This 83-nucleotide RNA sequence from Anisakis simplex belongs to the Rfam family "mir-57 microRNA precursor family". A reference for the family is Kozomara et al. (2019), "miRBase: from microRNA sequences to function", Nucleic Acids Res. The family's consensus secondary structure was predicted with RNAalifold. The source organism's lineage runs through Eukaryota, Nematoda, Ascaridomorpha, Ascaridoidea and Anisakis simplex complex.
RNA sequence: GUUAUUUCGUUUACCCUGUAGUACCGAGCUGUGUUUUAGUACAUGAUUAUACACAAUCGGUUAUUGGGUAAAUGGCGUUAACC
Numbered sequence: 001g002u003u004a005u006u007u008c009g010u011u012u013a014c015c016c017u018g019u020a021g022u023a024c025c026g027a028g029c030u031g032u033g034u035u036u037u038a039g040u041a042c043a044u045g046a047u048u049a050u051a052c053a054c055a056a057u058c059g060g061u062u063a064u065u066g067g068g069u070a071a072a073u074g075g076c077g078u079u080a081a082c083c
Stems, first nucleotide, its partner, number of pairs: 012070004018064004024060002028058001030056001032055003036051001039048001